[Rfam]
RNA sequence: AGCCUCAUUCCAAGUGACCCUGUUGAUCAGUGUCCAAAAUUGGUCAAAGUGGCUAAAGUGAGACACAGGUCCUGCUUCCAUCACAGUAAAUGUAUUGCAAUGGUGUAAUAAAACUUGAAACAGAG
Dot-bracket structure: .(((.(.(......((((.(.........).))).)..........).).)))............((((.........(((((.................)))))........))))........
Numbered sequence: 001a002g003c004c005u006c007a008u009u010c011c012a013a014g015u016g017a018c019c020c021u022g023u024u025g026a027u028c029a030g031u032g033u034c035c036a037a038a039a040u041u042g043g044u045c046a047a048a049g050u051g052g053c054u055a056a057a058g059u060g061a062g063a064c065a066c067a068g069g070u071c072c073u074g075c076u077u078c079c080a081u082c083a084c085a086g087u088a089a090a091u092g093u094a095u096u097g098c099a100a101u102g103g104u105g106u107a108a109u110a111a112a113a114c115u116u117g118a119a120a121c122a123g124a125g
Stems, first nucleotide, its partner, number of pairs: 002053003006049001008047001015036001016034003020030001066117004079105005
Rfam assigns this 125-nucleotide RNA from Castor canadensis to the family "Small nucleolar RNA SNORA1". A search with the family's covariance model found it, with a score of 79 bits. The organism belongs to Castor, within Eukaryota. About the family: ACA1 is a member of the H/ACA class of snoRNA that guide the sites of modification of uridines to pseudouridines. The family's RNA type in Rfam is H/ACA-box small nucleolar RNA.